[Rfam]
Annotation
Rfam assigns this 166-nucleotide part of an RNA from Fusarium gaditjirri to the family "Ascomycota telomerase RNA". It scores 356 bits against the family's covariance model. Gene Ontology terms of the family: telomere maintenance via telomerase, telomerase catalytic core complex and telomerase activity. Clan: Telomerase clan. By type it is a non-coding RNA gene. The pairing is the family consensus, mapped onto this sequence.
RNA sequence: CAAGCCUGCAAGGAUCAGAAGGUCUAAACAGGUCCCUCAGGUCCGCCGAAAGGUUGAACUGAGACGAAAGGGUGGUUUUUAUGGAUGUCUUUUGUCCGCCCGUCAAAGCCCUCCAUACCUCUCGCUGGCGAGAACUUUGGAGAGGAAUCAAAAACUAGUCCUAGUU
Numbered sequence: 001c002a003a004g005c006c007u008g009c010a011a012g013g014a015u016c017a018g019a020a021g022g023u024c025u026a027a028a029c030a031g032g033u034c035c036c037u038c039a040g041g042u043c044c045g046c047c048g049a050a051a052g053g054u055u056g057a058a059c060u061g062a063g064a065c066g067a068a069a070g071g072g073u074g075g076u077u078u079u080u081a082u083g084g085a086u087g088u089c090u091u092u093u094g095u096c097c098g099c100c101c102g103u104c105a106a107a108g109c110c111c112u113c114c115a116u117a118c119c120u121c122u123c124g125c126u127g128g129c130g131a132g133a134a135c136u137u138u139g140g141a142g143a144g145g146a147a148u149c150a151a152a153a154a155c156u157a158g159u160c161c162u163a164g165u166u
Base pairs, nucleotide, nucleotide: 007030008029011025012024014023015022016021035066036063037062038061039060040059043056047052084160085159086158087155088154090153091152092151093150094149109145110144111142112141113140114139120133121132122131123130124129